Shown here is a 360-nucleotide RNA sequence from Cupriavidus pinatubonensis, a member of the family "Betaproteobacteria transfer-messenger RNA". Bacterial tmRNA, also known as 10Sa RNA or SsrA, is named for its dual tRNA and mRNA-like properties. Its role is to liberate the mRNA from a stalled ribosome.

RNA sequence: GCACGCAAACUGCCUUGACGCUGACGGCAGCGGGCGUAGAAUCUAGAGCGUUGGGGGCCGCAAGGUUCCCGAUAAUGGUUGUGAACCUUCUUCUUGAAGGCCUUCUGGACGGCGGUUCGAUUCCGCCCAGGUCCACCAGAAGCACAUUGCACGGGCAGUGCGCUUCUGAUGGGCCUGACCUGGUUUCGACAGGGGGAGAUAGGGUCGUGAGGCAACUCGUCAGAGAAGACGUUAAAACUAAAUCGAAGUAAAUGCUAACGACGAAAAGUUCGCAUUGGCCGCCUAACAGCCGCCUUGGGUUGUAACUGACCUCGAAACAGAAAAGUUACUGACAAGGGCUCCUUCGGGGGCCCUUGUUCA
Dot-bracket structure: ............................................................................(((((....((.(...(((.....(((((((...(((((.......)))))(((((((....................................)))))))............))))))).....)))....).)))))))((((......)))).................................................................[[[[.((((((.]]]]...........))))))......(((..(((....)))..))).....
Source information:
By type it is a non-coding RNA gene.